[Rfam]
RNA sequence: GUCCACGUUGCGGCGGACCAGAGCCAGAAGCCUGUCAGGACAAUGGCCGCAGCCGGCCAUAGCCUCGUUGUCAAGGCGAGGAGGCCGGCUAU
Numbered sequence: 001g002u003c004c005a006c007g008u009u010g011c012g013g014c015g016g017a018c019c020a021g022a023g024c025c026a027g028a029a030g031c032c033u034g035u036c037a038g039g040a041c042a043a044u045g046g047c048c049g050c051a052g053c054c055g056g057c058c059a060u061a062g063c064c065u066c067g068u069u070g071u072c073a074a075g076g077c078g079a080g081g082a083g084g085c086c087g088g089c090u091a092u
Stems, first nucleotide, its partner, number of pairs: 001018004023047004031039002049092001051090008063081007
The record is a 92-nucleotide RNA from Phyllobacterium zundukense, which matches "Rhizobiales sRNA Atu_Ti1" in Rfam. The family's consensus secondary structure was predicted with WAR. NCBI's taxonomy places the organism under Bacteria, Alphaproteobacteria, Hyphomicrobiales, Phyllobacteriaceae, Phyllobacterium.